RNA: c-di-AMP riboswitch aptamer (ydaO/yuaA leader)
Organism: Geodermatophilus marinus
RNA sequence: GAACCGCCGACGCCCUCCGGGGUCGAGGCGGACCGGGGACCCACCGAACCUCUGGGGUGAGUCCUGGGUGCGCAGGGGGGCGCACCCGGGUAGGGCGACGUCCGGCCCGAACCCGUCAGCUAACCCGGUAGGCGGUCGCGAGGAUGGGA
Numbered sequence: 001g002a003a004c005c006g007c008c009g010a011c012g013c014c015c016u017c018c019g020g021g022g023u024c025g026a027g028g029c030g031g032a033c034c035g036g037g038g039a040c041c042c043a044c045c046g047a048a049c050c051u052c053u054g055g056g057g058u059g060a061g062u063c064c065u066g067g068g069u070g071c072g073c074a075g076g077g078g079g080g081c082g083c084a085c086c087c088g089g090g091u092a093g094g095g096c097g098a099c100g101u102c103c104g105g106c107c108c109g110a111a112c113c114c115g116u117c118a119g120c121u122a123a124c125c126c127g128g129u130a131g132g133c134g135g136u137c138g139c140g141a142g143g144a145u146g147g148g149a
Base pairs, nucleotide, nucleotide: 005134006133007132008131013030032129033128034127035126036125037124042054043053055114056113057112063090064089065088066087067086068085069084070083071082072081073080093108094107095106096105